[Rfam]
RNA sequence: AGAUAUCUUCAGGGCAGGGUGAGAUUCCCUACCGGCGGUAAAGCCCGCGAGCCGAGAGGCAUGAUCCGGUGAGAUUCCGGGGCCGACAGUACAGUCUGGAUGGAAGAAGAUGAUA
Numbered sequence: 001a002g003a004u005a006u007c008u009u010c011a012g013g014g015c016a017g018g019g020u021g022a023g024a025u026u027c028c029c030u031a032c033c034g035g036c037g038g039u040a041a042a043g044c045c046c047g048c049g050a051g052c053c054g055a056g057a058g059g060c061a062u063g064a065u066c067c068g069g070u071g072a073g074a075u076u077c078c079g080g081g082g083c084c085g086a087c088a089g090u091a092c093a094g095u096c097u098g099g100a101u102g103g104a105a106g107a108a109g110a111u112g113a114u115a
Base pairs, nucleotide, nucleotide: 004112005111006110007109008108009107010106017029018028019027031095032094033085034084035048036047037046038045043083044082065081066080067079068078069077087098088097089096